[Rfam]
RNA sequence: AUCGUUCAUCCCUUAACUCGUCUUUAACUCUAUUCUUAGUAGUCAAGGGACGGAAGUAGAGCCUUCGCUCGAAGGAACGCGCC
Numbered sequence: 001a002u003c004g005u006u007c008a009u010c011c012c013u014u015a016a017c018u019c020g021u022c023u024u025u026a027a028c029u030c031u032a033u034u035c036u037u038a039g040u041a042g043u044c045a046a047g048g049g050a051c052g053g054a055a056g057u058a059g060a061g062c063c064u065u066c067g068c069u070c071g072a073a074g075g076a077a078c079g080c081g082c083c
Stems, first nucleotide, its partner, number of pairs: 003079005009050005053080001059070003
The family of this 83-nucleotide RNA from Acaryochloris marina is "Glutamine riboswitch aptamer (glnA leader)".
The base pairs follow the family's consensus structure, which is taken from published work.
It is one of the family's seed sequences.
Gene Ontology term of the family: glutamine binding.